[Rfam]
RNA sequence: UACACCGCUGGACGUUGAAAAACGUAUAUGCCGCCAUAACUGGUAUGGCUAGUGGAAAUUAACUUGAUGCAGGACAGACAGUAAAGCGGUCGCACCUGCUGUCUGUAAAGGAUAGAA
Numbered sequence: 001u002a003c004a005c006c007g008c009u010g011g012a013c014g015u016u017g018a019a020a021a022a023c024g025u026a027u028a029u030g031c032c033g034c035c036a037u038a039a040c041u042g043g044u045a046u047g048g049c050u051a052g053u054g055g056a057a058a059u060u061a062a063c064u065u066g067a068u069g070c071a072g073g074a075c076a077g078a079c080a081g082u083a084a085a086g087c088g089g090u091c092g093c094a095c096c097u098g099c100u101g102u103c104u105g106u107a108a109a110g111g112a113u114a115g116a117a
Base pairs, nucleotide, nucleotide: 003054004053005052010027012025013024014023015022031048032047034043035042036041063110064109065108074106075105076104077103078102079101080100081099082098083097086093087092